[Rfam]
RNA sequence: GAUCGGGAGUGCGUAGGCUAUACAAAACCCGAAUGGGGAAAUCCUUCCGCCGCGCUGAGUGGCGGUUUGAGAACUCCCGAUCCUUUUCCU
Numbered sequence: 001g002a003u004c005g006g007g008a009g010u011g012c013g014u015a016g017g018c019u020a021u022a023c024a025a026a027a028c029c030c031g032a033a034u035g036g037g038g039a040a041a042u043c044c045u046u047c048c049g050c051c052g053c054g055c056u057g058a059g060u061g062g063c064g065g066u067u068u069g070a071g072a073a074c075u076c077c078c079g080a081u082c083c084u085u086u087u088c089c090u
Base pairs, nucleotide, nucleotide: 001082002081003080004079005078006077007076008075009074013047015045016044019041028037029036030035049066050065051064052063053062
Shown here is a 90-nucleotide sequence from Halodesulfovibrio spirochaetisodalis, a member of the family "sRNA-Xcc1". On this family, see Wengelnik et al., Mol Plant Microbe Interact 1996: "HrpG, a key hrp regulatory protein of Xanthomonas campestris pv. vesicatoria is homologous to two-component response regulators". The base pairs follow the family's consensus structure, which was predicted with RNAalifold. The source organism's lineage runs through Bacteria, Desulfovibrionia, Desulfovibrionales, Desulfovibrionaceae and Halodesulfovibrio. It is annotated as a small RNA. It scores 59 bits against the family's covariance model.